The family of this 55-nucleotide RNA from Solanum commersonii is "MIR8008 microRNA precursor family". A search with the family's covariance model found it, with a score of 70 bits. NCBI's taxonomy places the organism under Eukaryota, Spermatophyta, Magnoliopsida, lamiids, Solanum.
RNA sequence: AAACUCAGAAAAGCGACGGACAGGGUCCUUCAGUUCAUCGCUUUUCUGAAUUUUU
Numbered sequence: 001a002a003a004c005u006c007a008g009a010a011a012a013g014c015g016a017c018g019g020a021c022a023g024g025g026u027c028c029u030u031c032a033g034u035u036c037a038u039c040g041c042u043u044u045u046c047u048g049a050a051u052u053u054u055u
Stems, first nucleotide, its partner, number of pairs: 001053003005049012018036004